[Rfam]
RNA sequence: GGCAAGGGAUGCUUUUCUCACGAUGGUCUGCGGAGCCCCUGAGUGGGUGCUGUCGACGCUGCCCUUUGGCACGACUGAUGCCCUGCC
Numbered sequence: 001g002g003c004a005a006g007g008g009a010u011g012c013u014u015u016u017c018u019c020a021c022g023a024u025g026g027u028c029u030g031c032g033g034a035g036c037c038c039c040u041g042a043g044u045g046g047g048u049g050c051u052g053u054c055g056a057c058g059c060u061g062c063c064c065u066u067u068g069g070c071a072c073g074a075c076u077g078a079u080g081c082c083c084u085g086c087c
Base pairs, nucleotide, nucleotide: 001082002081003080004079

Rfam assigns this 87-nucleotide RNA from Laticauda laticaudata to the family "Small nucleolar RNA SNORD35". About the family: U35 is a C/D box snoRNA located in intron 6 of ribosomal protein L13A and intron 3 of ribosomal protein S11 in humans and at homologous positions in mouse and chicken ribosomal protein genes. U35 guides the methylation of 2'-O-ribose sites in 28S rRNA. Lineage of the source: Eukaryota > Chordata > Craniata > Sauropsida > Laticauda. The family is grouped with related families in Rfam's "SNORD35 clan".